This 156-nucleotide RNA sequence from Paenibacillus sp. YN15 belongs to the Rfam family "c-di-AMP riboswitch aptamer (ydaO/yuaA leader)". The match comes from Rfam's covariance-model search (56 bits).

[Rfam]
RNA sequence: GCCUAAAUAAAGCCGAAUCCGGUAUAGAUGCUUCUAUAUGAACAACCGGUACGGGGGAUGAUUUACAGGGGUGAAUGAGCGCUUGUUAUUUUGAGCGCCUAGGGAGCAACCUUCUUCCCGAACCCGUCAACUAACCUCGGAGGCAGGAGACUCAUC
Numbered sequence: 001g002c003c004u005a006a007a008u009a010a011a012g013c014c015g016a017a018u019c020c021g022g023u024a025u026a027g028a029u030g031c032u033u034c035u036a037u038a039u040g041a042a043c044a045a046c047c048g049g050u051a052c053g054g055g056g057g058a059u060g061a062u063u064u065a066c067a068g069g070g071g072u073g074a075a076u077g078a079g080c081g082c083u084u085g086u087u088a089u090u091u092u093g094a095g096c097g098c099c100u101a102g103g104g105a106g107c108a109a110c111c112u113u114c115u116u117c118c119c120g121a122a123c124c125c126g127u128c129a130a131c132u133a134a135c136c137u138c139g140g141a142g143g144c145a146g147g148a149g150a151c152u153c154a155u156c
Base pairs, nucleotide, nucleotide: 012144013143014142019049020048021047022046023045052139053138054137055136056135062067069125070124071123077099079098080097081096082095083094084093085092102119103118104117105116